RNA sequence: GGGGCCGUUUAUGGAUUCGACGGGAAUAGUUCGAGCAUGAGUAGCGAGUAGCGGGGCCGCGUCCGCUUCAUCAACGCUAAAGCCAUAAUAAAUGGCAAAGCACAACCUUCUUACGCAGUAGCAGCUUAAUAACCUGCUCUCGUGCUUCUACCUAGCAUCGCCCAUGUGCUAGGAUAGGGGCUCACCUUUAGUGGGAUACGCCGUCAGGUCUCCGCCUGGGGUCUGACGGAAGAAGACAAUCAGGCUGAUCGCGCGCGAAGCCGGUUCCGGGGCGUCCGCGCGAUGACAACAAUACCGUAACUACACUCGUAGAAGCUUGUGUGCCGUUAUUUUCGGACAGGGGUUCGACUCCCCUCGGCUCCAUAC
Numbered sequence: 001g002g003g004g005c006c007g008u009u010u011a012u013g014g015a016u017u018c019g020a021c022g023g024g025a026a027u028a029g030u031u032c033g034a035g036c037a038u039g040a041g042u043a044g045c046g047a048g049u050a051g052c053g054g055g056g057c058c059g060c061g062u063c064c065g066c067u068u069c070a071u072c073a074a075c076g077c078u079a080a081a082g083c084c085a086u087a088a089u090a091a092a093u094g095g096c097a098a099a100g101c102a103c104a105a106c107c108u109u110c111u112u113a114c115g116c117a118g119u120a121g122c123a124g125c126u127u128a129a130u131a132a133c134c135u136g137c138u139c140u141c142g143u144g145c146u147u148c149u150a151c152c153u154a155g156c157a158u159c160g161c162c163c164a165u166g167u168g169c170u171a172g173g174a175u176a177g178g179g180g181c182u183c184a185c186c187u188u189u190a191g192u193g194g195g196a197u198a199c200g201c202c203g204u205c206a207g208g209u210c211u212c213c214g215c216c217u218g219g220g221g222u223c224u225g226a227c228g229g230a231a232g233a234a235g236a237c238a239a240u241c242a243g244g245c246u247g248a249u250c251g252c253g254c255g256c257g258a259a260g261c262c263g264g265u266u267c268c269g270g271g272g273c274g275u276c277c278g279c280g281c282g283a284u285g286a287c288a289a290c291a292a293u294a295c296c297g298u299a300a301c302u303a304c305a306c307u308c309g310u311a312g313a314a315g316c317u318u319g320u321g322u323g324c325c326g327u328u329a330u331u332u333u334c335g336g337a338c339a340g341g342g343g344u345u346c347g348a349c350u351c352c353c354c355u356c357g358g359c360u361c362c363a364u365a366c
Base pairs, nucleotide, nucleotide: 001362002361003360004359005358006357007356021335022334023333024332025331026330027329028328029327030326033324035322036321037320038319039318040317041316042315045309046308047307048306049305051069053067054066059077060076061075118140120138121137122136123135124134144181145180146179147178148177149176151173152172153171154170155169156168157167158166161195162194163193164192165191201229202228203227204226205225206224207223208222209221214245215244216243217242218241248284249283250282251281252280253279254278255277257275260273261272262271264301265300266299270293339355340354341353342352343351